[Rfam]
RNA sequence: CGCUAUGAUGGUGUAAUUUGCGUCCUACUUUGUGAUUGGCGACAGUUUGCCUGCUGUCACAAGCCGUCACAAGAGGCUGACGAACACUGAGUCUGAGCG
Numbered sequence: 001c002g003c004u005a006u007g008a009u010g011g012u013g014u015a016a017u018u019u020g021c022g023u024c025c026u027a028c029u030u031u032g033u034g035a036u037u038g039g040c041g042a043c044a045g046u047u048u049g050c051c052u053g054c055u056g057u058c059a060c061a062a063g064c065c066g067u068c069a070c071a072a073g074a075g076g077c078u079g080a081c082g083a084a085c086a087c088u089g090a091g092u093c094u095g096a097g098c099g
Base pairs, nucleotide, nucleotide: 001099002098003097021082022081023080024079030072031071032070033069034068039064040063041058042057043056044055045054
This 99-nucleotide RNA from Albula glossodonta belongs to the Rfam family "Small nucleolar RNA SNORD16". Its family is annotated with RNA processing and nucleolus in the Gene Ontology. It scores 85 bits against the family's covariance model. Lineage of the source: Eukaryota > Metazoa > Albuliformes > Albulinae > Albula. It is annotated as a C/D-box small nucleolar RNA. Rfam 15.1 lists 1,321 matches to the family in 655 species.